[Rfam]
RNA sequence: GAUAGCCAUAGAUGACUAGUGGAUUGAUGGUGGGGUCGGUAACAACGCGGACAUCAUGAAUUGUUGCGUCGUAUAGUCCUCCCCAAAAAAUGGCUUUCCCCACUAGCAACAAAGCCCCUAACCCUAAAAAGAGUAGGUGAUGUCCUAAAAUCAAGCCAAGUUUUUUGUGGUCGUUCCA
Numbered sequence: 001g002a003u004a005g006c007c008a009u010a011g012a013u014g015a016c017u018a019g020u021g022g023a024u025u026g027a028u029g030g031u032g033g034g035g036u037c038g039g040u041a042a043c044a045a046c047g048c049g050g051a052c053a054u055c056a057u058g059a060a061u062u063g064u065u066g067c068g069u070c071g072u073a074u075a076g077u078c079c080u081c082c083c084c085a086a087a088a089a090a091u092g093g094c095u096u097u098c099c100c101c102a103c104u105a106g107c108a109a110c111a112a113a114g115c116c117c118c119u120a121a122c123c124c125u126a127a128a129a130a131g132a133g134u135a136g137g138u139g140a141u142g143u144c145c146u147a148a149a150a151u152c153a154a155g156c157c158a159a160g161u162u163u164u165u166u167g168u169g170g171u172c173g174u175u176c177c178a
Stems, first nucleotide, its partner, number of pairs: 136175006144169001146167003
Dot-bracket structure: .......................................................................................................................................((((((..(.(((................))).)))))))...